[Rfam]
Rfam assigns this 178-nucleotide sequence from Sulfuriferula nivalis to the family "6S / SsrS RNA". It is annotated as a non-coding RNA gene. The base pairs follow the family's consensus structure, which is taken from published work. The source organism's lineage runs through Bacteria, Pseudomonadati, Pseudomonadota, Betaproteobacteria and Sulfuriferula. Rfam describes the family as follows. E. coli 6S RNA was the first non coding RNA to be sequenced, but its function was unknown until recently.

RNA sequence: UGUUCCCUGCGGUGCGCGUCCAGAUUGCGAAUUCUUUGAACCAAUAAAUUUGCGAUGGUUGCGGCUAAAAAAGCACUGGUGUGCGCGUCUCACUUGUUGAUGUGCCUGAUGUGCUUGCGUUGUGACCACUUGAACCCUAGGUUCAAGAUAGCGGUCAGACGGCAUCUGCGGGGAGCUC
Numbered sequence: 001u002g003u004u005c006c007c008u009g010c011g012g013u014g015c016g017c018g019u020c021c022a023g024a025u026u027g028c029g030a031a032u033u034c035u036u037u038g039a040a041c042c043a044a045u046a047a048a049u050u051u052g053c054g055a056u057g058g059u060u061g062c063g064g065c066u067a068a069a070a071a072a073g074c075a076c077u078g079g080u081g082u083g084c085g086c087g088u089c090u091c092a093c094u095u096g097u098u099g100a101u102g103u104g105c106c107u108g109a110u111g112u113g114c115u116u117g118c119g120u121u122g123u124g125a126c127c128a129c130u131u132g133a134a135c136c137c138u139a140g141g142u143u144c145a146a147g148a149u150a151g152c153g154g155u156c157a158g159a160c161g162g163c164a165u166c167u168g169c170g171g172g173g174a175g176c177u178c
Stems, first nucleotide, its partner, number of pairs: 002176010012165004017161003033148003037145006057127003061123005071116006083105002088102001090100003
Dot-bracket structure: .((((((((((((((.(((.............(((.((((((..............(((.(((((.....((((((......((...(.(((.....))).).)).....))))))..))))).)))............)))))))))..........))))))).))))))))))..